[Rfam]
RNA: Group II catalytic intron D1-D4-1
Organism: Syntrophotalea carbinolica
RNA sequence: CUACCGGCAUCGCAAGGUGUCGGGAUGGGUUGGCAGAAGUCAGCAGAGGCCAUAAUAGCCGGGCUAACCACUUUGGCGAAGGGC
Numbered sequence: 001c002u003a004c005c006g007g008c009a010u011c012g013c014a015a016g017g018u019g020u021c022g023g024g025a026u027g028g029g030u031u032g033g034c035a036g037a038a039g040u041c042a043g044c045a046g047a048g049g050c051c052a053u054a055a056u057a058g059c060c061g062g063g064c065u066a067a068c069c070a071c072u073u074u075g076g077c078g079a080a081g082g083g084c
Stems, first nucleotide, its partner, number of pairs: 001027001004023008040047002049084003058077006